RNA sequence: GAUAAUGUUCUUUUAGGGUGGUCGGCUAACCCCACGAUAGAAGGGGGUGAUGCCUAUUAGCGUGUAUGAGGUUAUGAUGGUGCUGUUUUCAUUUGGUACGCUGCUCAUUGCUUUACUCGCUUUGAUCAUUGAAUUGAUCAAUAAAAAAUAGACCUCCCUAUUAACCUGUAAGUUGAUUGGGUGAGGUCUAUUCUCGACGAAUAGCUGAUCCCCUGGGGAAUCAUUAUCUGUGGGUCGCAGUGGCAGCUGCGACC
Dot-bracket structure: (((((.(((((..(((((.(.(....(.(((((..........))))).).........(.(((......((............))........((((..........)))).))).)................................).)..)))))..).........(((...................))).........))((((...))))).).)))))....(((((((((....)))))))))

Description: Rfam assigns this 254-nucleotide RNA sequence from Halobacillus andaensis to the family "BsrG". A search with the family's covariance model found it, with a score of 65 bits. On this family, see Saito et al., Gene 2008: "Novel small RNA-encoding genes in the intergenic regions of Bacillus subtilis". From the family's description: bsrE, bsrG and bsrH pair through intermolecular interactions with antisense sRNAs. Rfam links the family to the GO terms toxin activity and autolysis.